A member of the RNA family "permuted transfer-messenger RNA" from Candidatus Tokpelaia hoelldobleri, 214 nucleotides long. Taxonomically the source falls in Candidatus Tokpelaia (Bacteria, Pseudomonadati, Pseudomonadota, Alphaproteobacteria). On this family, see Williams and Bartel, RNA 1996: "Phylogenetic analysis of tmRNA secondary structure".
RNA sequence: GGUGAUAAACGGGCUGUGAAAUAAACCGAUUGGACCCGGGGGCGGUACCCGGCGCCUCCACCACAGGGCAUUUGCAAAGCUGCUCUGUGGCGGGGGCGAAACAGGAUCGACAAAGGCGUAAAGACUGAUCUUUCACCCGGCAUUGUACCACCGUUAUCGGGCUGACUUGGUAGUUGCAAAUGACAACUAUGCGGAGGCUCGUCUCGCUGCCUAA
Number, nucleotide and partner (000 for none) at each position: 001g137002g136003u135004g134005a133006u000007a000008a000009a000010c000011g000012g000013g000014c127015u000016g125017u124018g000019a000020a000021a000022u000023a000024a000025a000026c116027c115028g000029a000030u113031u112032g111033g000034a000035c000036c052037c051038g050039g049040g048041g000042g000043c000044g000045g000046u000047a000048c040049c039050c038051g037052g036053c098054g097055c096056c095057u094058c093059c092060a000061c000062c000063a000064c000065a000066g000067g000068g000069c000070a000071u000072u000073u000074g000075c000076a000077a000078a000079g000080c000081u000082g000083c000084u000085c000086u000087g000088u000089g000090g000091c000092g059093g058094g057095g056096g055097c054098g053099a000100a000101a000102c000103a000104g000105g000106a000107u000108c000109g000110a000111c032112a031113a030114a000115g027116g026117c000118g000119u000120a000121a000122a000123g000124a017125c016126u000127g014128a000129u000130c000131u000132u000133u005134c004135a003136c002137c001138c153139g152140g151141c000142a000143u000144u000145g000146u000147a000148c000149c000150a000151c140152c139153g138154u000155u000156a000157u000158c000159g000160g000161g000162c000163u000164g000165a000166c000167u000168u000169g000170g000171u000172a000173g000174u000175u000176g000177c000178a000179a000180a000181u000182g000183a000184c000185a000186a000187c000188u000189a000190u000191g000192c000193g000194g000195a000196g000197g000198c000199u000200c000201g000202u000203c000204u000205c000206g000207c000208u000209g000210c000211c000212u000213a000214a000